[Rfam]
RNA: c-di-GMP-I-GGC riboswitch aptamer
RNA sequence: CCUCGAAAUGGCAAACCCGGCGAAAGCCGGGGACGCGAAGCCACGGUCCCUCACUCUACUUGAGAGACGGGAAGCCGAGCUACCGAAA
Numbered sequence: 001c002c003u004c005g006a007a008a009u010g011g012c013a014a015a016c017c018c019g020g021c022g023a024a025a026g027c028c029g030g031g032g033a034c035g036c037g038a039a040g041c042c043a044c045g046g047u048c049c050c051u052c053a054c055u056c057u058a059c060u061u062g063a064g065a066g067a068c069g070g071g072a073a074g075c076c077g078a079g080c081u082a083c084c085g086a087a088a
Stems, first nucleotide, its partner, number of pairs: 003085001011036002016031006034074001039081003044077003047072003